[Rfam]
RNA sequence: UGAGGAAUGAGUUUAAGCUCAAAAAUCCUGCAAAUAUACAUACACAAAAUUCAAAAAUCAAAAAAAGGAAAAGAGGGCUAAGACUUGAAAAUUAUAUUUUCUUUCUUUCCUUCUUUUUUUUUUUUUUUGUUUUUUUUUAUACAUUUUGUGUAAUUAAUAAAAUACAGGAAGGAAGGUCUGAGAUGCUGCAAAAAAAGAAUUAAUUAUAUUUCUUAAAAAUAAAUCAAAACUAUUUUUAAUAGUCUUGUAUUUAUUUUUUUAUACUUAUUUCUUUAUUAAUAUUUUUGAGAAAAAUAAUAUUGAACAAAUAUUAUUUAGCUACCAGAAAUAUCAAUCAUAUAUUUAUAGUAGUUUUUUUAAUUAUAAAAAAAUUAUUUAUAUAUAUUUGAUUUUGAAAAAGCUAAUAAGCAAGUAUACAUUGGUGAGUUCGAUUUUUGAGGUUUUUCAGCUACUUUGAUUUUUUUUCAAGUAGUAGAAAAAUAACUUAAUUCAGACUACUCCUAAAUUCAUUCCAA
Numbered sequence: 001u002g003a004g005g006a007a008u009g010a011g012u013u014u015a016a017g018c019u020c021a022a023a024a025a026u027c028c029u030g031c032a033a034a035u036a037u038a039c040a041u042a043c044a045c046a047a048a049a050u051u052c053a054a055a056a057a058u059c060a061a062a063a064a065a066a067g068g069a070a071a072a073g074a075g076g077g078c079u080a081a082g083a084c085u086u087g088a089a090a091a092u093u094a095u096a097u098u099u100u101c102u103u104u105c106u107u108u109c110c111u112u113c114u115u116u117u118u119u120u121u122u123u124u125u126u127u128u129g130u131u132u133u134u135u136u137u138u139a140u141a142c143a144u145u146u147u148g149u150g151u152a153a154u155u156a157a158u159a160a161a162a163u164a165c166a167g168g169a170a171g172g173a174a175g176g177u178c179u180g181a182g183a184u185g186c187u188g189c190a191a192a193a194a195a196a197g198a199a200u201u202a203a204u205u206a207u208a209u210u211u212c213u214u215a216a217a218a219a220u221a222a223a224u225c226a227a228a229a230c231u232a233u234u235u236u237u238a239a240u241a242g243u244c245u246u247g248u249a250u251u252u253a254u255u256u257u258u259u260u261a262u263a264c265u266u267a268u269u270u271c272u273u274u275a276u277u278a279a280u281a282u283u284u285u286u287g288a289g290a291a292a293a294a295u296a297a298u299a300u301u302g303a304a305c306a307a308a309u310a311u312u313a314u315u316u317a318g319c320u321a322c323c324a325g326a327a328a329u330a331u332c333a334a335u336c337a338u339a340u341a342u343u344u345a346u347a348g349u350a351g352u353u354u355u356u357u358u359a360a361u362u363a364u365a366a367a368a369a370a371a372u373u374a375u376u377u378a379u380a381u382a383u384a385u386u387u388g389a390u391u392u393u394g395a396a397a398a399a400g401c402u403a404a405u406a407a408g409c410a411a412g413u414a415u416a417c418a419u420u421g422g423u424g425a426g427u428u429c430g431a432u433u434u435u436u437g438a439g440g441u442u443u444u445u446c447a448g449c450u451a452c453u454u455u456g457a458u459u460u461u462u463u464u465u466c467a468a469g470u471a472g473u474a475g476a477a478a479a480a481u482a483a484c485u486u487a488a489u490u491c492a493g494a495c496u497a498c499u500c501c502u503a504a505a506u507u508c509a510u511u512c513c514a515a
Base pairs, nucleotide, nucleotide: 004513005512006511007510008509009508010507011506012505013504014503015502018439019438020437021436022435023434024433026169027168028167029166030165041152042151043150044149045148046147047146174496175495178493179492180491181490182489183415184414185413186412187411188409189408263269283294284293285292286291311407312406313405315404316403317402318401319400320399336388337387339385340384341383342382345381346380347379440481441480442479443478444477445476446475
The record is a 515-nucleotide sequence from Plasmodium yoelii, which matches "Plasmodium RNase_P" in Rfam. It scores 215 bits against the family's covariance model. Rfam links the family to the GO terms ribonuclease P activity and tRNA processing. The organism belongs to Plasmodium yoelii, within Eukaryota. The family's RNA type in Rfam is ribozyme. The literature on the family includes a 2007 paper in RNA by Chakrabarti et al., "Structural RNAs of known and unknown function identified in malaria parasites by comparative genomics and RNA analysis".